[Rfam]
RNA sequence: UUCUUAUCAAGAGAAGCUGAGGGACUGGCCCGAUGACGCUUCAGCAACCGGUCAUGCAAGCGCGCGUGCCAAGGUGCUAAAUCCAGCUAAGCGUUUUGCUUGGAAGAUAAGAA
Numbered sequence: 001u002u003c004u005u006a007u008c009a010a011g012a013g014a015a016g017c018u019g020a021g022g023g024a025c026u027g028g029c030c031c032g033a034u035g036a037c038g039c040u041u042c043a044g045c046a047a048c049c050g051g052u053c054a055u056g057c058a059a060g061c062g063c064g065c066g067u068g069c070c071a072a073g074g075u076g077c078u079a080a081a082u083c084c085a086g087c088u089a090a091g092c093g094u095u096u097u098g099c100u101u102g103g104a105a106g107a108u109a110a111g112a113a
Stems, first nucleotide, its partner, number of pairs: 001113008013042005021031003025086004043078004048074002050070003082105001087103006
Shown here is a 113-nucleotide RNA from Bacillus sp. SJS, a member of the family "SAM riboswitch aptamer (S box leader)". The organism belongs to Bacillus, within Bacteria. The family's consensus secondary structure is taken from published work. Rfam's curators write: The SAM riboswitch is found upstream of a number of genes which code for proteins involved in methionine or cysteine biosynthesis in Gram-positive bacteria. Gene Ontology term of the family: regulation of gene expression. A search with the family's covariance model found it, with a score of 90 bits.